[Rfam]
Rfam assigns this 181-nucleotide RNA from Pseudomonas kuykendallii to the family "Pseudomonas sRNA P1". A search with the family's covariance model found it, with a score of 106 bits. This small RNA (sRNA) was computationally identified in the genome of the opportunistic pathogen Pseudomonas aeruginosa and its expression verified by northern blot analysis. There appears to be two related copies of P1 sRNA in the P.aeruginosa PA01 genome and both copies appear to be located upstream of predicted glutamine synthetase genes. This sRNA appears to be conserved amongst several Pseudomonas species. It is annotated as a non-coding RNA gene. The family's consensus secondary structure was predicted with RNAalifold.
RNA sequence: ACACCCGAUUGUUUGCUGUCUGGGGUUCUGCCGGAGAGUAGCGUUGUUCAUUUUUUUACACAACACUUCUGUAAAAAAUAUAACACACCCGUGUCGGGCGGCGCCGUAAGCCAAGUUUUCAGGCCCCUCGCAAUGCCCUGAAACGCCCCAAAGAUGGCCGCAAGGCUCCUUUUUAGGGCAA
Number, nucleotide and partner (000 for none) at each position: 001a000002c000003a000004c000005c000006c000007g000008a000009u000010u000011g000012u000013u000014u000015g000016c000017u000018g000019u000020c000021u000022g000023g000024g105025g104026u103027u000028c101029u000030g000031c000032c000033g000034g092035a000036g090037a000038g000039u000040a000041g088042c000043g086044u085045u000046g084047u083048u082049c000050a000051u000052u078053u077054u076055u075056u074057u073058a072059c071060a000061c000062a000063a000064c000065a000066c000067u000068u000069c000070u000071g059072u058073a057074a056075a055076a054077a053078a052079u000080a000081u000082a048083a047084c046085a044086c043087a000088c041089c000090c036091g000092u034093g000094u000095c000096g000097g000098g000099c000100g000101g028102c000103g026104c025105c024106g000107u000108a000109a000110g000111c000112c000113a000114a000115g000116u000117u000118u000119u000120c000121a000122g000123g000124c000125c000126c000127c000128u000129c000130g000131c000132a000133a000134u000135g000136c000137c000138c000139u000140g000141a000142a000143a000144c000145g000146c000147c000148c000149c000150a000151a000152a000153g000154a000155u000156g000157g000158c000159c000160g000161c000162a000163a000164g000165g179166c178167u000168c176169c000170u000171u000172u000173u000174u000175a000176g168177g000178g166179c165180a000181a000

A reference for the family is Livny et al. (2006), "Identification of 17 Pseudomonas aeruginosa sRNAs and prediction of sRNA-encoding genes in 10 diverse pathogens using the bioinformatic tool sRNAPredict2", Nucleic Acids Res.